[Rfam]
RNA sequence: UUAACGACCUCUCAAGGAGGCCGUUAAUCGCUUUGCGCCACUAACCUACUGUAACGGGCAGACCACACACGGCAUAAGUAGCGUUUGCUGCGCUGCUAGUCCCGACCAGGGGGCGACACCUUCGAAUUGUUCGGGGACACCCUAAAGCCAUAGCUACCAAGCUGGAAGGGGCAGCUCGGCGCUGCCCAGCCGAAAGGCGCCAGUGGAGUAACGCCCGAAAGGGAAGCACGUUACGGGUAAUAAUGCUAUUGGAUGAGGCGAAAGCUGAAAUGGGCAAUCCGCAGCGAAGUCCUAAACCCACACAGGGAGUGUAUCCGUGAUGUACGCAGCAGUGACUCGCUUCGGCGGGAAUACCGGCGUGCACCUCUCCGGCUCUACCUUCCGCCGUGGCCAUGGAACGCGUUCAACGACUAAGUGUUGGUGGGCUAAUGUCUAGGCGCAGACCUUGCCGCCGAUGAUGACAUGGCUUAAGAUAUAGUCUUUAUAGCAGGGAAACCUGUGG
Numbered sequence: 001u002u003a004a005c006g007a008c009c010u011c012u013c014a015a016g017g018a019g020g021c022c023g024u025u026a027a028u029c030g031c032u033u034u035g036c037g038c039c040a041c042u043a044a045c046c047u048a049c050u051g052u053a054a055c056g057g058g059c060a061g062a063c064c065a066c067a068c069a070c071g072g073c074a075u076a077a078g079u080a081g082c083g084u085u086u087g088c089u090g091c092g093c094u095g096c097u098a099g100u101c102c103c104g105a106c107c108a109g110g111g112g113g114c115g116a117c118a119c120c121u122u123c124g125a126a127u128u129g130u131u132c133g134g135g136g137a138c139a140c141c142c143u144a145a146a147g148c149c150a151u152a153g154c155u156a157c158c159a160a161g162c163u164g165g166a167a168g169g170g171g172c173a174g175c176u177c178g179g180c181g182c183u184g185c186c187c188a189g190c191c192g193a194a195a196g197g198c199g200c201c202a203g204u205g206g207a208g209u210a211a212c213g214c215c216c217g218a219a220a221g222g223g224a225a226g227c228a229c230g231u232u233a234c235g236g237g238u239a240a241u242a243a244u245g246c247u248a249u250u251g252g253a254u255g256a257g258g259c260g261a262a263a264g265c266u267g268a269a270a271u272g273g274g275c276a277a278u279c280c281g282c283a284g285c286g287a288a289g290u291c292c293u294a295a296a297c298c299c300a301c302a303c304a305g306g307g308a309g310u311g312u313a314u315c316c317g318u319g320a321u322g323u324a325c326g327c328a329g330c331a332g333u334g335a336c337u338c339g340c341u342u343c344g345g346c347g348g349g350a351a352u353a354c355c356g357g358c359g360u361g362c363a364c365c366u367c368u369c370c371g372g373c374u375c376u377a378c379c380u381u382c383c384g385c386c387g388u389g390g391c392c393a394u395g396g397a398a399c400g401c402g403u404u405c406a407a408c409g410a411c412u413a414a415g416u417g418u419u420g421g422u423g424g425g426c427u428a429a430u431g432u433c434u435a436g437g438c439g440c441a442g443a444c445c446u447u448g449c450c451g452c453c454g455a456u457g458a459u460g461a462c463a464u465g466g467c468u469u470a471a472g473a474u475a476u477a478g479u480c481u482u483u484a485u486a487g488c489a490g491g492g493a494a495a496c497c498u499g500u501g502g
Stems, first nucleotide, its partner, number of pairs: 005023002008020004117423004123417002128283002132281004140274003284403002290397003298390004407481001409480005425467004430463004487500005
Rfam assigns this 502-nucleotide RNA from Armillaria ostoyae to the family "Group I catalytic intron". Group I catalytic introns are large self-splicing ribozymes. They catalyse their own excision from mRNA, tRNA and rRNA precursors in a wide range of organisms. The core secondary structure consists of 9 paired regions (P1-P9). These fold to essentially two domains - the P4-P6 domain (formed from the stacking of P5, P4, P6 and P6a helices) and the P3-P9 domain (formed from the P8, P3, P7 and P9 helices). For this family Rfam cites "Self-splicing of group I introns" (Cech, Annu Rev Biochem, 1990). The match comes from Rfam's covariance-model search (66 bits).